The family of this 596-nucleotide part of an RNA from uncultured Fidelibacterota bacterium HF0010_18O13 is "Bacterial small subunit ribosomal RNA". NCBI's taxonomy places the organism under Bacteria, Pseudomonadati, Fidelibacterota. The literature on the family includes a 2001 paper in Science by Yusupov et al., "Crystal structure of the ribosome at 5.5 A resolution".
RNA sequence: UGACGGGGACCCGCACAAGCGGUGGAACAUGUGGUUUAAUUCGAUGAUACGCGAAGAACCUUACCUGGGUUUGACAUGUUAGUGAAAGUUUUCUGAAAAGAAUUCCUUUUAAGAGCUUGCUCUUAAACACUAUCACAGGUGGUGCAUGGCUGUCGUCAGCUCGUGUCGUGAGAUGUUAGGUUAAGUCCUGCAACGAGCGCAACCCCUAUAUUUAGUUGCCAGCACAUAAUGGUGGGGACUCUAGAUAGACUGCCCGGAAUAACCGGGAGGAAGGUGGGGAUGAUGUCAAGUCAGUAUGUCCCUUAUACCCAGGGCUACACACGUGUUACAAUGGAUAGUACAAAAAGUCGCAAUCCCGCGAGGAGGAGCCAAUCUUUAAAACUAUCCCCAGUUCAGAUUGAAGUCUGAAAUUCGACUUCAUGAAGCAGGAAUCGCUAGUAAUCGUAGGUCAGCACACUACGGUGAAUACGUUCCCGGGUCUUGUACACACCGCCCGUCAAGUCAUGGAAGUCUGCAGUACCCGAAGAUGGUAUCCUAACCGCAAGGAGGGAGCUGUUUAAGGUAAGGCAGGUAACUGGGACUAAGUCGUAACAAGG
Numbered sequence: 001u002g003a004c005g006g007g008g009a010c011c012c013g014c015a016c017a018a019g020c021g022g023u024g025g026a027a028c029a030u031g032u033g034g035u036u037u038a039a040u041u042c043g044a045u046g047a048u049a050c051g052c053g054a055a056g057a058a059c060c061u062u063a064c065c066u067g068g069g070u071u072u073g074a075c076a077u078g079u080u081a082g083u084g085a086a087a088g089u090u091u092u093c094u095g096a097a098a099a100g101a102a103u104u105c106c107u108u109u110u111a112a113g114a115g116c117u118u119g120c121u122c123u124u125a126a127a128c129a130c131u132a133u134c135a136c137a138g139g140u141g142g143u144g145c146a147u148g149g150c151u152g153u154c155g156u157c158a159g160c161u162c163g164u165g166u167c168g169u170g171a172g173a174u175g176u177u178a179g180g181u182u183a184a185g186u187c188c189u190g191c192a193a194c195g196a197g198c199g200c201a202a203c204c205c206c207u208a209u210a211u212u213u214a215g216u217u218g219c220c221a222g223c224a225c226a227u228a229a230u231g232g233u234g235g236g237g238a239c240u241c242u243a244g245a246u247a248g249a250c251u252g253c254c255c256g257g258a259a260u261a262a263c264c265g266g267g268a269g270g271a272a273g274g275u276g277g278g279g280a281u282g283a284u285g286u287c288a289a290g291u292c293a294g295u296a297u298g299u300c301c302c303u304u305a306u307a308c309c310c311a312g313g314g315c316u317a318c319a320c321a322c323g324u325g326u327u328a329c330a331a332u333g334g335a336u337a338g339u340a341c342a343a344a345a346a347g348u349c350g351c352a353a354u355c356c357c358g359c360g361a362g363g364a365g366g367a368g369c370c371a372a373u374c375u376u377u378a379a380a381a382c383u384a385u386c387c388c389c390a391g392u393u394c395a396g397a398u399u400g401a402a403g404u405c406u407g408a409a410a411u412u413c414g415a416c417u418u419c420a421u422g423a424a425g426c427a428g429g430a431a432u433c434g435c436u437a438g439u440a441a442u443c444g445u446a447g448g449u450c451a452g453c454a455c456a457c458u459a460c461g462g463u464g465a466a467u468a469c470g471u472u473c474c475c476g477g478g479u480c481u482u483g484u485a486c487a488c489a490c491c492g493c494c495c496g497u498c499a500a501g502u503c504a505u506g507g508a509a510g511u512c513u514g515c516a517g518u519a520c521c522c523g524a525a526g527a528u529g530g531u532a533u534c535c536u537a538a539c540c541g542c543a544a545g546g547a548g549g550g551a552g553c554u555g556u557u558u559a560a561g562g563u564a565a566g567g568c569a570g571g572u573a574a575c576u577g578g579g580a581c582u583a584a585g586u587c588g589u590a591a592c593a594a595g596g
Stems, first nucleotide, its partner, number of pairs: 001487002003484003007481007015471002019435005024329001026327008034318002040055004064313007077135002080132005088105001091102004107127003138302002141300004147296002149291003152287001154285002159198006165174003177190004204279004209247007219236002223234003250270002253267005333387007345376003350369002356363002394425001399420007441463007490595001492592001495588002500582004505577003510572006518564004526557006533551004539546002